[Rfam]
RNA sequence: CGAGAUAACUCUCUCUAAGGAACUCGGCAAAAUAGCCCCGUAACUUCGGAAGAAGGGGUGCCCUUGUAGGGCUGCAAUAAAUAGACCCAAGCGACUGUUUAUCAAAAACACAGGUCUCCGCUAAGUCGCAAGACAAUGUAUGGGGGCUGACGCCUGCCCAGUGCCGGAAGGUUAAGGAAGCUGGUUAGUCAUUGGCAAAGCUAGUAACUGAAGCCCCGGUGAACGGCGGCCGUAACUAUAACGGUCCUAAGGUAGCGAAAUUCCUUGUCGGGUAAGUUCCGACCCGCACGAAAGGCGUAACGAUUUGGGUACUGUCUCAGAGAGAGACUCG
Numbered sequence: 001c002g003a004g005a006u007a008a009c010u011c012u013c014u015c016u017a018a019g020g021a022a023c024u025c026g027g028c029a030a031a032a033u034a035g036c037c038c039c040g041u042a043a044c045u046u047c048g049g050a051a052g053a054a055g056g057g058g059u060g061c062c063c064u065u066g067u068a069g070g071g072c073u074g075c076a077a078u079a080a081a082u083a084g085a086c087c088c089a090a091g092c093g094a095c096u097g098u099u100u101a102u103c104a105a106a107a108a109c110a111c112a113g114g115u116c117u118c119c120g121c122u123a124a125g126u127c128g129c130a131a132g133a134c135a136a137u138g139u140a141u142g143g144g145g146g147c148u149g150a151c152g153c154c155u156g157c158c159c160a161g162u163g164c165c166g167g168a169a170g171g172u173u174a175a176g177g178a179a180g181c182u183g184g185u186u187a188g189u190c191a192u193u194g195g196c197a198a199a200g201c202u203a204g205u206a207a208c209u210g211a212a213g214c215c216c217c218g219g220u221g222a223a224c225g226g227c228g229g230c231c232g233u234a235a236c237u238a239u240a241a242c243g244g245u246c247c248u249a250a251g252g253u254a255g256c257g258a259a260a261u262u263c264c265u266u267g268u269c270g271g272g273u274a275a276g277u278u279c280c281g282a283c284c285c286g287c288a289c290g291a292a293a294g295g296c297g298u299a300a301c302g303a304u305u306u307g308g309g310u311a312c313u314g315u316c317u318c319a320g321a322g323a324g325a326g327a328c329u330c331g
Base pairs, nucleotide, nucleotide: 001331002330003329004328009326010325011324012323013322014321015320016319018317019316020315035059036058037057038056039055044049060072061071062070063069064068073077085310086309087308088307089306090305091304092302093301096110097109098108113148114147115146116145117144118143119142120141121138125134126133127132151297152296153295154294156227157226158225161224162223163220164219165218166217167216170215171214172213176209177208180205181204182203183202184201185200188196189195228246229245230244231243232242233241247251257284267283268282269281270280271279272278
RNA: Bacterial large subunit ribosomal RNA, nucleotides 1660 to 1990